[Rfam]
RNA sequence: AAUGAAUGAUGACAAAUGUUUCGGUCCCAAAUGACGUGGAAUGAUUAUUAUUUGUUCAUUUUCUGACAUU
Numbered sequence: 001a002a003u004g005a006a007u008g009a010u011g012a013c014a015a016a017u018g019u020u021u022c023g024g025u026c027c028c029a030a031a032u033g034a035c036g037u038g039g040a041a042u043g044a045u046u047a048u049u050a051u052u053u054g055u056u057c058a059u060u061u062u063c064u065g066a067c068a069u070u
Stems, first nucleotide, its partner, number of pairs: 001070004
The record is a 70-nucleotide sequence from Turnix velox, which matches "Small nucleolar RNA SNORD73" in Rfam. It scores 70 bits against the family's covariance model. Rfam links the family to the GO terms RNA processing and nucleolus. The base pairs follow the family's consensus structure, which was predicted with PFOLD.